The record is a 70-nucleotide RNA sequence from Rattus norvegicus, which matches "mir-344 microRNA precursor family" in Rfam.
[Rfam]
RNA sequence: UGCUCAGUCAGGCUCCUGGCUUAAUCUAGGACUUCUCUGUUCCUGGGUAUACCCAAAGCCUGACUGCAUG
Numbered sequence: 001u002g003c004u005c006a007g008u009c010a011g012g013c014u015c016c017u018g019g020c021u022u023a024a025u026c027u028a029g030g031a032c033u034u035c036u037c038u039g040u041u042c043c044u045g046g047g048u049a050u051a052c053c054c055a056a057a058g059c060c061u062g063a064c065u066g067c068a069u070g
Stems, first nucleotide, its partner, number of pairs: 007064003011060004017055003021051001022049002027039004
On this family, see Chiang et al., Genes Dev 2010: "Mammalian microRNAs: experimental evaluation of novel and previously annotated genes".